Annotation
A member of the RNA family "Bacterial large signal recognition particle RNA" from Clostridium sp. CAG:411, 264 nucleotides long. The organism belongs to Clostridium, within Bacteria. The family's RNA type in Rfam is non-coding RNA gene. A search with the family's covariance model found it, with a score of 189 bits. Pairs were carried over by alignment from the consensus structure, which is taken from published work. Rfam's curators write: The signal recognition particle (SRP) is a universally conserved ribonucleoprotein involved in the co-translational targeting of proteins to membranes.
RNA sequence: CCGUGCAGCCGGGGAGUUAGCGGUGCCCUGUACCUACAAUCCGCUACAGUAGGGGUGUUGUUCUUUCUGAGGAUAUUUUCUUGUAGGGCUGCCCUCUGUAAGUGGCGUUGACGUUUGGGUCUUACGCAAUAGGAACUUGUGAACCGUGUCAGGUUGGGAACAAAGCAGCACUAAGCAAGCACUCUUAUGUGAUGUGAGGUCGCCUGAAUUGAGUUAACUGCAGAGGUAACGCUUAUGAGAGAUAUUCGAGGUUAGGGCGCACGG
Numbered sequence: 001c002c003g004u005g006c007a008g009c010c011g012g013g014g015a016g017u018u019a020g021c022g023g024u025g026c027c028c029u030g031u032a033c034c035u036a037c038a039a040u041c042c043g044c045u046a047c048a049g050u051a052g053g054g055g056u057g058u059u060g061u062u063c064u065u066u067c068u069g070a071g072g073a074u075a076u077u078u079u080c081u082u083g084u085a086g087g088g089c090u091g092c093c094c095u096c097u098g099u100a101a102g103u104g105g106c107g108u109u110g111a112c113g114u115u116u117g118g119g120u121c122u123u124a125c126g127c128a129a130u131a132g133g134a135a136c137u138u139g140u141g142a143a144c145c146g147u148g149u150c151a152g153g154u155u156g157g158g159a160a161c162a163a164a165g166c167a168g169c170a171c172u173a174a175g176c177a178a179g180c181a182c183u184c185u186u187a188u189g190u191g192a193u194g195u196g197a198g199g200u201c202g203c204c205u206g207a208a209u210u211g212a213g214u215u216a217a218c219u220g221c222a223g224a225g226g227u228a229a230c231g232c233u234u235a236u237g238a239g240a241g242a243u244a245u246u247c248g249a250g251g252u253u254a255g256g257g258c259g260c261a262c263g264g
Stems, first nucleotide, its partner, number of pairs: 001264006008056003011029004016024003033053005062256003067251002071247005077242010090228002094225006102218002104215003113209008121198006127189002130187005136179005146171004154163003